[Rfam]
RNA sequence: CGAUCGGGUGGUCCCUUGUGGGAUUGGGACCAAGAAUGGAUCGUUCCCCGCCUCUCUCGGGUGGCUCUGCCGCUGUGGCCCGACAGCGUGCAGG
Numbered sequence: 001c002g003a004u005c006g007g008g009u010g011g012u013c014c015c016u017u018g019u020g021g022g023a024u025u026g027g028g029a030c031c032a033a034g035a036a037u038g039g040a041u042c043g044u045u046c047c048c049c050g051c052c053u054c055u056c057u058c059g060g061g062u063g064g065c066u067c068u069g070c071c072g073c074u075g076u077g078g079c080c081c082g083a084c085a086g087c088g089u090g091c092a093g094g
Stems, first nucleotide, its partner, number of pairs: 001043005010031006066094005071088005
About this RNA:
Rhodo-rpoB RNA: a 94-nucleotide RNA sequence from Roseovarius sp. THAF27. By type it is a cis-regulatory element. The match comes from Rfam's covariance-model search (75 bits). The base pairs follow the family's consensus structure, which is taken from published work. Lineage of the source: Bacteria > Pseudomonadati > Pseudomonadota > Rhodobacterales > Roseovarius.